[Rfam]
RNA: tRNA
Organism: Thermofilum pendens
RNA sequence: GCCGGGGUAGCUCAGCUGGGAGAGCGCUCGGCUGAAGACCGAGUCGCGCACCCGGCAUAGAGGUGCGCUGCGGGAGAGGUCCCGGGUUCAAAUCCCGGCCCCGGCA
Numbered sequence: 001g002c003c004g005g006g007g008u009a010g011c012u013c014a015g016c017u018g019g020g021a022g023a024g025c026g027c028u029c030g031g032c033u034g035a036a037g038a039c040c041g042a043g044u045c046g047c048g049c050a051c052c053c054g055g056c057a058u059a060g061a062g063g064u065g066c067g068c069u070g071c072g073g074g075a076g077a078g079g080u081c082c083c084g085g086g087u088u089c090a091a092a093u094c095c096c097g098g099c100c101c102c103g104g105c106a
Base pairs, nucleotide, nucleotide: 001105002104003103004102005101006100007099010025011024012023013022027043028042029041030040031039082098083097084096085095086094